RNA sequence: GUAGAGUAUUCAGAAUUGCAUAAGCAAUACCAACCGAGUGUAGGCACCGCGGUGGUAAAAUAAUACGGGUAUCACGCCAAAAUAAACGUGUCUUC
Numbered sequence: 001g002u003a004g005a006g007u008a009u010u011c012a013g014a015a016u017u018g019c020a021u022a023a024g025c026a027a028u029a030c031c032a033a034c035c036g037a038g039u040g041u042a043g044g045c046a047c048c049g050c051g052g053u054g055g056u057a058a059a060a061u062a063a064u065a066c067g068g069g070u071a072u073c074a075c076g077c078c079a080a081a082a083u084a085a086a087c088g089u090g091u092c093u094u095c
Base pairs, nucleotide, nucleotide: 006066007065008064009063010062015028016027017026018025019024029056030055031054034052035051036050038047039046043089068078069077070076
The family of this 95-nucleotide RNA from Sphingobacterium psychroaquaticum is "SAM-I/IV (S-adenosyl methionine) riboswitch aptamer". The base pairs follow the family's consensus structure, which is taken from published work. The literature on the family includes a 2014 paper in PNAS by Trausch et al., "Structural basis for diversity in the SAM clan of riboswitches". Lineage of the source: Bacteria > Sphingobacteriia > Sphingobacteriales > Sphingobacteriaceae > Sphingobacterium.